The family of this 83-nucleotide sequence is "skipping-rope RNA". The family's RNA type in Rfam is small RNA. The sequence is in the family's curated seed alignment. The family's consensus secondary structure is taken from published work.
[Rfam]
RNA sequence: AAUAUUUGAAGUGGAGAAUGUGCUUCCACACACCUGGAGACAGGUCAAAAGAAAUGUAGGAAAGGGUACACCUACCUUAUAUU
Numbered sequence: 001a002a003u004a005u006u007u008g009a010a011g012u013g014g015a016g017a018a019u020g021u022g023c024u025u026c027c028a029c030a031c032a033c034c035u036g037g038a039g040a041c042a043g044g045u046c047a048a049a050a051g052a053a054a055u056g057u058a059g060g061a062a063a064g065g066g067u068a069c070a071c072c073u074a075c076c077u078u079a080u081a082u083u
Base pairs, nucleotide, nucleotide: 001083002082003081004080005079008076011029012028013027014026015025020069021068022067023066024065031051032045033044034043035042056075057074058073059072060071